[Rfam]
SAM riboswitch aptamer (S box leader): a 100-nucleotide RNA from Phascolarctobacterium succinatutens. Rfam describes the family as follows. The SAM riboswitch is found upstream of a number of genes which code for proteins involved in methionine or cysteine biosynthesis in Gram-positive bacteria. Pairs were carried over by alignment from the consensus structure, which is taken from published work.

RNA sequence: AUUUCAUCAAGAGUAGCUGAGGGACUGGCCCGAUGAAGCUACGGCAACCACACAUCAGUGAACGGUGCCAAUUCCAACGGAUAAUUCCGGCAGAUGAAGA
Numbered sequence: 001a002u003u004u005c006a007u008c009a010a011g012a013g014u015a016g017c018u019g020a021g022g023g024a025c026u027g028g029c030c031c032g033a034u035g036a037a038g039c040u041a042c043g044g045c046a047a048c049c050a051c052a053c054a055u056c057a058g059u060g061a062a063c064g065g066u067g068c069c070a071a072u073u074c075c076a077a078c079g080g081a082u083a084a085u086u087c088c089g090g091c092a093g094a095u096g097a098a099g100a
Base pairs, nucleotide, nucleotide: 002099003098004097005096006095007094008093013042014041015040016039017038021031022030023029026076027075028074043069044068045067046066048065049064051060052059053058073092078089079088080087081086